The family of this 98-nucleotide sequence from Breoghania sp. L-A4 is "Bacterial small signal recognition particle RNA". NCBI's taxonomy places the organism under Bacteria, Pseudomonadati, Hyphomicrobiales, Stappiaceae, Breoghania. Rfam describes the family as follows. The signal recognition particle (SRP) is a universally conserved ribonucleoprotein involved in the co-translational targeting of proteins to membranes. Pairs were carried over by alignment from the consensus structure, which is taken from published work. It is annotated as a non-coding RNA gene.

RNA sequence: GAGGUUGGCUAGUGGACGCGCCACUCGCCAACCGGGUCAGGUCCGGAAGGAAGCAGCCCCAACGAGUAUCGGCACGGGUCACCGUGUCCAACCUCCCA
Numbered sequence: 001g002a003g004g005u006u007g008g009c010u011a012g013u014g015g016a017c018g019c020g021c022c023a024c025u026c027g028c029c030a031a032c033c034g035g036g037u038c039a040g041g042u043c044c045g046g047a048a049g050g051a052a053g054c055a056g057c058c059c060c061a062a063c064g065a066g067u068a069u070c071g072g073c074a075c076g077g078g079u080c081a082c083c084g085u086g087u088c089c090a091a092c093c094u095c096c097c098a
Stems, first nucleotide, its partner, number of pairs: 004092005010084001012082003017076002020073003023067005034059004042051003